[Rfam]
RNA sequence: AGGCUGUGAUGACUGAUUACGUUUCUCGAUCCUGAAUAUCAUCAUGUUAGCUCUUAUACGGACCAAAGUGAGAGCUAGUUUUUCAUUUGUUGACAGCAUUUGUGCGUGUCUGAGCCUU
Numbered sequence: 001a002g003g004c005u006g007u008g009a010u011g012a013c014u015g016a017u018u019a020c021g022u023u024u025c026u027c028g029a030u031c032c033u034g035a036a037u038a039u040c041a042u043c044a045u046g047u048u049a050g051c052u053c054u055u056a057u058a059c060g061g062a063c064c065a066a067a068g069u070g071a072g073a074g075c076u077a078g079u080u081u082u083u084c085a086u087u088u089g090u091u092g093a094c095a096g097c098a099u100u101u102g103u104g105c106g107u108g109u110c111u112g113a114g115c116c117u118u
Stems, first nucleotide, its partner, number of pairs: 001117004
small nucleolar RNA snoR126: a 118-nucleotide RNA from Populus trichocarpa. The base pairs follow the family's consensus structure, which was predicted with RNAalifold. It scores 59 bits against the family's covariance model. For this family Rfam cites "Mining small RNA sequencing data: a new approach to identify small nucleolar RNAs in Arabidopsis" (Chen and Wu, Nucleic Acids Res, 2009).